[Rfam]
The family of this 181-nucleotide RNA sequence from Streptomyces aurantiogriseus is "c-di-AMP riboswitch aptamer (ydaO/yuaA leader)". Gene Ontology terms of the family: regulation of gene expression and cyclic-di-AMP binding.
RNA sequence: AUCGACGAACCACUCGCGCACGGCAGGAGCGGGGGACCCAGGCAGGCCGUCGGACGGUACGUCAGGCACGUACCGGACCGGCUUGGGGUGAAGCCGUGUCGCCGUAUCCGUACGGCGGCCGGCCGGGCACCUCCCCGCCCGAACCCGACAGCUCACCCCGCAGGCGCCGGAGAGGAACAUC
Numbered sequence: 001a002u003c004g005a006c007g008a009a010c011c012a013c014u015c016g017c018g019c020a021c022g023g024c025a026g027g028a029g030c031g032g033g034g035g036a037c038c039c040a041g042g043c044a045g046g047c048c049g050u051c052g053g054a055c056g057g058u059a060c061g062u063c064a065g066g067c068a069c070g071u072a073c074c075g076g077a078c079c080g081g082c083u084u085g086g087g088g089u090g091a092a093g094c095c096g097u098g099u100c101g102c103c104g105u106a107u108c109c110g111u112a113c114g115g116c117g118g119c120c121g122g123c124c125g126g127g128c129a130c131c132u133c134c135c136c137g138c139c140c141g142a143a144c145c146c147g148a149c150a151g152c153u154c155a156c157c158c159c160g161c162a163g164g165c166g167c168c169g170g171a172g173a174g175g176a177a178c179a180u181c
Base pairs, nucleotide, nucleotide: 003166004165006163011027029161030160031159032158033157034156039085040084041083042082043081086146087145088144094122095121096120125140126139127138128137